[Rfam]
RNA sequence: AGUAGUAGCAGCAAAGUGAGGUGAGAAUCCUCACCGCCGGAGGGGCUAGGGUUCCUGGGCUCUGUUCGUCAGCCCAGGGUUAGUCGGUCCUAAGGCCACUGGUAAUCUAAGUGGUCGAAAGGGAAACAGGUUAAUAUUCCUGUACAACCCAGGUACAUGCGGUGACGCUAGGACUGGCUUCUGACGCUUCAGGGUAGGCCGAGUAGGACUGUCGUCCUAUUUAAGGGUUGAAGCCUGGGGAGAACCGUAAUGGUGAGAACCAGGUGAAGGCCUGAAUAGCCACCCCUUGUGGGUGGUUCGGCCGACCCCCGGAGCCCGUGAAAAAGGAGCCAGUAUGGAUCCUGGGUUGCCGUACCGAGAACCGACACAGGUGCCCCUAGCUGAGUAGGCUAAGGCGUGU
Numbered sequence: 001a002g003u004a005g006u007a008g009c010a011g012c013a014a015a016g017u018g019a020g021g022u023g024a025g026a027a028u029c030c031u032c033a034c035c036g037c038c039g040g041a042g043g044g045g046c047u048a049g050g051g052u053u054c055c056u057g058g059g060c061u062c063u064g065u066u067c068g069u070c071a072g073c074c075c076a077g078g079g080u081u082a083g084u085c086g087g088u089c090c091u092a093a094g095g096c097c098a099c100u101g102g103u104a105a106u107c108u109a110a111g112u113g114g115u116c117g118a119a120a121g122g123g124a125a126a127c128a129g130g131u132u133a134a135u136a137u138u139c140c141u142g143u144a145c146a147a148c149c150c151a152g153g154u155a156c157a158u159g160c161g162g163u164g165a166c167g168c169u170a171g172g173a174c175u176g177g178c179u180u181c182u183g184a185c186g187c188u189u190c191a192g193g194g195u196a197g198g199c200c201g202a203g204u205a206g207g208a209c210u211g212u213c214g215u216c217c218u219a220u221u222u223a224a225g226g227g228u229u230g231a232a233g234c235c236u237g238g239g240g241a242g243a244a245c246c247g248u249a250a251u252g253g254u255g256a257g258a259a260c261c262a263g264g265u266g267a268a269g270g271c272c273u274g275a276a277u278a279g280c281c282a283c284c285c286c287u288u289g290u291g292g293g294u295g296g297u298u299c300g301g302c303c304g305a306c307c308c309c310c311g312g313a314g315c316c317c318g319u320g321a322a323a324a325a326g327g328a329g330c331c332a333g334u335a336u337g338g339a340u341c342c343u344g345g346g347u348u349g350c351c352g353u354a355c356c357g358a359g360a361a362c363c364g365a366c367a368c369a370g371g372u373g374c375c376c377c378u379a380g381c382u383g384a385g386u387a388g389g390c391u392a393a394g395g396c397g398u399g400u
Base pairs, nucleotide, nucleotide: 016034017033018032019031020030021029035397036396037395038394043376044375045374046373049356050355054078055077056076057075058074059073063071064070085352086351087350089122090121094116095115096114097113098112099111100109101108102107126143127142128141129140130139146348147347148346149345150344151343152342153341180327181326182325186315187314188313189312190311192309193308194307197303198302199301200300201299202221203220204219205218206217207216225273226272227271228270234264235263236262237261238260244254245253246252285291362371363370378392379391380390381389
Shown here is a 400-nucleotide part of an RNA from Methanothermobacter tenebrarum, a member of the family "Archaeal large subunit ribosomal RNA". The base pairs follow the family's consensus structure, which is taken from published work. The match comes from Rfam's covariance-model search (2953 bits). Gene Ontology terms of the family: structural constituent of ribosome and ribosome. On this family, see Yusupov et al., Science 2001: "Crystal structure of the ribosome at 5.5 A resolution".